This 69-nucleotide RNA sequence from Drosophila simulans belongs to the Rfam family "mir-303 microRNA precursor family".
RNA sequence: UCUUGCUUUGGCAUUAAAGGAAGCUAGUUUAAUUACGAAAACUAGUUUCCUCUAACGUUUCAAACAAUA
Numbered sequence: 001u002c003u004u005g006c007u008u009u010g011g012c013a014u015u016a017a018a019g020g021a022a023g024c025u026a027g028u029u030u031a032a033u034u035a036c037g038a039a040a041a042c043u044a045g046u047u048u049c050c051u052c053u054a055a056c057g058u059u060u061c062a063a064a065c066a067a068u069a
Stems, first nucleotide, its partner, number of pairs: 003067003007063002010059003014055003018051013